A member of the RNA family "MIR168 microRNA precursor family" from Helianthus annuus, 166 nucleotides long. The base pairs follow the family's consensus structure, which was predicted with WAR. Its family is annotated with miRNA-mediated post-transcriptional gene silencing and RISC complex in the Gene Ontology.
RNA sequence: GUCACGGCGGUUUUCUGAUUCGCUUGGUACAGGUCGGGAACGGCGUCGCCGGCGAUGGCAGUUUUGUAACUUUGCGCACCGGAAGGUGAAACGGUGUCGUAGAGGAUUUGUUUUCGGUGAUUACUGGUCCCGCCUUGGAUCAACUGAAUCAGAAACCGGAGUGAAU
Numbered sequence: 001g002u003c004a005c006g007g008c009g010g011u012u013u014u015c016u017g018a019u020u021c022g023c024u025u026g027g028u029a030c031a032g033g034u035c036g037g038g039a040a041c042g043g044c045g046u047c048g049c050c051g052g053c054g055a056u057g058g059c060a061g062u063u064u065u066g067u068a069a070c071u072u073u074g075c076g077c078a079c080c081g082g083a084a085g086g087u088g089a090a091a092c093g094g095u096g097u098c099g100u101a102g103a104g105g106a107u108u109u110g111u112u113u114u115c116g117g118u119g120a121u122u123a124c125u126g127g128u129c130c131c132g133c134c135u136u137g138g139a140u141c142a143a144c145u146g147a148a149u150c151a152g153a154a155a156c157c158g159g160a161g162u163g164a165a166u
Base pairs, nucleotide, nucleotide: 014153015152018149019148020147021146024143025142026141027140028139030137031136032135033134035132036131037130038129039128041126042125